[Rfam]
Shown here is a 94-nucleotide RNA from Psychrosphaera ytuae, a member of the family "t44 RNA". A reference for the family is Tjaden et al. (2002), "Transcriptome analysis of Escherichia coli using high-density oligonucleotide probe arrays", Nucleic Acids Res. About the family: This family consists of a number of bacterial RNA genes of between 135 and 170 bases in length. The t44 gene has been identified in several species of enteric bacteria but homologs have also been identified in Pseudomonas and Coxiella species. The t44 gene is found between the map and rpsB genes in all species in the full alignment apart from Shigella flexneri. By type it is a small RNA.
RNA sequence: AAACAUUUAAUUAAAUAACACACAUAUAUCGACACGUUCUCCGGGGUGCUGAGCUUAGGCUUGGUCGGUAGAAUGGGAUAUAUGGAGGCCUAAC
Numbered sequence: 001a002a003a004c005a006u007u008u009a010a011u012u013a014a015a016u017a018a019c020a021c022a023c024a025u026a027u028a029u030c031g032a033c034a035c036g037u038u039c040u041c042c043g044g045g046g047u048g049c050u051g052a053g054c055u056u057a058g059g060c061u062u063g064g065u066c067g068g069u070a071g072a073a074u075g076g077g078a079u080a081u082a083u084g085g086a087g088g089c090c091u092a093a094c
Base pairs, nucleotide, nucleotide: 023084024083025082026081027080028079029078030077035075036074037073038072039071041068042067043066048065049064050063051062052061
The base pairs follow the family's consensus structure, which was predicted with LocARNA.